[Rfam]
RNA sequence: UUCGCUAUGCCCUAGCGAUCUGCUAAACACAUCCGCGCGCAGGUCCGGACUGCAUCCGGGCCCUCUCUUUCAAAGAGUGUCCCUGCGCG
Numbered sequence: 001u002u003c004g005c006u007a008u009g010c011c012c013u014a015g016c017g018a019u020c021u022g023c024u025a026a027a028c029a030c031a032u033c034c035g036c037g038c039g040c041a042g043g044u045c046c047g048g049a050c051u052g053c054a055u056c057c058g059g060g061c062c063c064u065c066u067c068u069u070u071c072a073a074a075g076a077g078u079g080u081c082c083c084u085g086c087g088c089g
Base pairs, nucleotide, nucleotide: 002018003017004016005015006014036089037088038087039086040085042062043061044060045059046058047057048056063079065077066076067075068074069073